[Rfam]
RNA sequence: UGACGGGGACCCGCACAAGCGGUGGAGCAUGUGGCUUAAUUCGAUGCUACGCGAAGAACCUUACCUGGGUUUGACAUAGAUUAGACAGAACAUGAAAAUGUUUUUUUCUGAAAAGAACUGGUCUACAGGUGCUGCAUGGCUGUCGUCAGCUCGUGUCGUGAGAUGUUCGGUUAAGUCCGGCAACGAGCGCAACCCUCGUCUUUAGUUGCUAACAAGUAAAGUUGAGUACUUUAAAGAGAUAGUUUUUUAAAAAAAAACAGAAGUUGAGGAUGACGUCAAGUCAGUAUGGCCUUUAUAUCCAGGGCUGCACACGUGCUACAAUGCUUAAAACAAUAGGAAGCGAAAUUGUGAAAUGAAGCAAAUCCAAUAAAUUUAAGCUCAGUUCGGAUUGAAGUCUGCAACUCGACUUCAUGAAGUAGGAAUCGCUAGUAAUGGUAUAUCAGCAACGGUACCGUGAAUAUGUUCCCGGGUCUUGUACACACCGCCCGUCACGUCAUGAAAGCUGGUUUUAUUUGAUGAAUGAGCUUUAAAAUAGUUUAUUUUAAAGUCGAACUAGUGAUUGGGACGAAGUCGUAACAAGG
Dot-bracket structure: (((((.(((((((.((..((((((.((((((((((....((((........))))........(((((((......((.(((((..(((((((....))))))).((((....))))))))).))..((.((((..((((((.((...(((((((((....)))..((((......))))..)))))).....((((.(((((((...((..(((......)))))....)))))))..(.((((((.....)))))).).....))))....)).).)))...))))))))....)))))))...)).)))))))).)...(((((((......((..((...(((....)))...))....))......)))))))......(....(((((((........)))))))....).....))))).....(((((((..........)))))))......))...)))))))))).))..(.(..((...((((.(((..((((((((.(((....((((((.((.......)).))))))...))).))))))))..))).))))....))...)..).

Rfam assigns this 581-nucleotide part of an RNA from Candidatus Pinguicoccus supinus to the family "Bacterial small subunit ribosomal RNA". The match comes from Rfam's covariance-model search (1390 bits). Lineage of the source: Bacteria > Pseudomonadati > Verrucomicrobiota > Candidatus Pinguicoccus. Gene Ontology terms of the family: structural constituent of ribosome and ribosome. The family is grouped with related families in Rfam's "SSU clan".